Rfam assigns this 104-nucleotide RNA from Sodalis glossinidius to the family "Tryptophan operon leader". A reference for the family is Kolter and Yanofsky (1982), "Attenuation in amino acid biosynthetic operons", Annu Rev Genet. About the family: At least 6 amino acid operons are known to be regulated by attenuation. In each a leader sequence of 150-200 bp is found upstream of the first gene in the operon. This leader sequence can assume two different secondary structures known as the terminator and the anti-terminator structure. The organism belongs to Sodalis glossinidius, within Bacteria. The base pairs follow the family's consensus structure, which is taken from published work.

RNA sequence: CUUCGCUGGUGGCGCCCCCCUUUAGCGGGUGGUGAAAUCAUGCGUCGCUGUCAUCAGACAGAGCACGAUCCCAAAUAGCCCGCUGCGUUAGCGGGUUUUUUAUG
Number, nucleotide and partner (000 for none) at each position: 001c000002u000003u000004c000005g000006c000007u000008g000009g041010u040011g039012g038013c000014g000015c034016c000017c032018c031019c029020c028021u027022u000023u000024a000025g000026c000027g021028g020029g019030u000031g018032g017033u000034g015035a000036a000037a000038u012039c011040a010041u009042g000043c000044g000045u000046c000047g000048c000049u000050g000051u000052c000053a000054u000055c000056a000057g000058a000059c000060a000061g000062a000063g000064c000065a000066c000067g000068a000069u000070c000071c000072c000073a000074a000075a000076u000077a097078g096079c095080c094081c093082g092083c091084u000085g000086c000087g000088u000089u000090a000091g083092c082093g081094g080095g079096u078097u077098u000099u000100u000101u000102a000103u000104g000
Its family is annotated with transcriptional attenuation by ribosome and tryptophan biosynthetic process in the Gene Ontology.